RNA sequence: UCAGGCGGCCGGACGGCCGCGCCCUCCACCCUUCGCGAGAAGGCUGGGGCCGAAAGGCCGGAGGGUGAGGAAAGUCCGGGCUCCACGGGAACACGGUGCCGGGUAACGCCCGGCGGGGGCGACCCCAGGGACAGUGCCACAGAGAACAGACCGCCGGCGCGCCGCGAGGCCCGUCGGCAAGGGUGAAACGGUGCGGCAAGAGCGCACCGCGGCCCCGGCAACGGGGACGGCACGGCAAACCCCACCGGGAGCAAGACCGAAUAGGGGCGGGCGGCGGAAGCCCUCAAACGGCAGGCCGCAGGCGCGUUCCCGCGCGUCCCGCCCGGGUAGGUCGCGCGAGGCGCCCGGCGACGGGCGUCCCAGACGAAUGGUCGUCCAGGGGUGGCGACACCCCGGACAGAACCCGGCUUACAGGCCGCCUGACCCG
Numbered sequence: 001u002c003a004g005g006c007g008g009c010c011g012g013a014c015g016g017c018c019g020c021g022c023c024c025u026c027c028a029c030c031c032u033u034c035g036c037g038a039g040a041a042g043g044c045u046g047g048g049g050c051c052g053a054a055a056g057g058c059c060g061g062a063g064g065g066u067g068a069g070g071a072a073a074g075u076c077c078g079g080g081c082u083c084c085a086c087g088g089g090a091a092c093a094c095g096g097u098g099c100c101g102g103g104u105a106a107c108g109c110c111c112g113g114c115g116g117g118g119g120c121g122a123c124c125c126c127a128g129g130g131a132c133a134g135u136g137c138c139a140c141a142g143a144g145a146a147c148a149g150a151c152c153g154c155c156g157g158c159g160c161g162c163c164g165c166g167a168g169g170c171c172c173g174u175c176g177g178c179a180a181g182g183g184u185g186a187a188a189c190g191g192u193g194c195g196g197c198a199a200g201a202g203c204g205c206a207c208c209g210c211g212g213c214c215c216c217g218g219c220a221a222c223g224g225g226g227a228c229g230g231c232a233c234g235g236c237a238a239a240c241c242c243c244a245c246c247g248g249g250a251g252c253a254a255g256a257c258c259g260a261a262u263a264g265g266g267g268c269g270g271g272c273g274g275c276g277g278a279a280g281c282c283c284u285c286a287a288a289c290g291g292c293a294g295g296c297c298g299c300a301g302g303c304g305c306g307u308u309c310c311c312g313c314g315c316g317u318c319c320c321g322c323c324c325g326g327g328u329a330g331g332u333c334g335c336g337c338g339a340g341g342c343g344c345c346c347g348g349c350g351a352c353g354g355g356c357g358u359c360c361c362a363g364a365c366g367a368a369u370g371g372u373c374g375u376c377c378a379g380g381g382g383u384g385g386c387g388a389c390a391c392c393c394c395g396g397a398c399a400g401a402a403c404c405c406g407g408c409u410u411a412c413a414g415g416c417c418g419c420c421u422g423a424c425c426c427g
Base pairs, nucleotide, nucleotide: 001423002422003421004420005419006418007417008416009415010414011412012376013375014374015373016372017371018370020067021066022065023064024063025062026061027060072410073409074408076407077406078405079404080403081251082250083249084248089311094247095246096245097244098243099113100112101111102110103109114128115126116125117124118123129242130241134240135239136236137235138234151182152181153178154177155176156175157174158173159172161170162169163168190208191207192206193205194204195203209231210229211228213226214225215224216223217222255333256332257331258330265324266323267322268321269320270319302317303316304315305314306313340359341358342357343356344355345354346353347352